This 102-nucleotide RNA from Dickeya dadantii belongs to the Rfam family "Gammaprotebacteria rimP leader".
RNA sequence: CAGCAGUUUGCGGUAAAUAGGGUCCAGUUGCACAAAGCCCCGAUAUAUCGGGGUUUUUUGUUAUCUGACAGCAGAAUUACUGGGCUAUUAAGCCCUUUUUUU
Numbered sequence: 001c002a003g004c005a006g007u008u009u010g011c012g013g014u015a016a017a018u019a020g021g022g023u024c025c026a027g028u029u030g031c032a033c034a035a036a037g038c039c040c041c042g043a044u045a046u047a048u049c050g051g052g053g054u055u056u057u058u059u060g061u062u063a064u065c066u067g068a069c070a071g072c073a074g075a076a077u078u079a080c081u082g083g084g085c086u087a088u089u090a091a092g093c094c095c096u097u098u099u100u101u102u
Stems, first nucleotide, its partner, number of pairs: 034057009082095004
It scores 101 bits against the family's covariance model. For this family Rfam cites "Premature terminator analysis sheds light on a hidden world of bacterial transcriptional attenuation" (Naville and Gautheret, Genome Biol, 2010). Taxonomically the source falls in Dickeya dadantii (Bacteria, Pseudomonadota, Enterobacterales, Pectobacteriaceae). Gene Ontology term of the family: regulation of gene expression.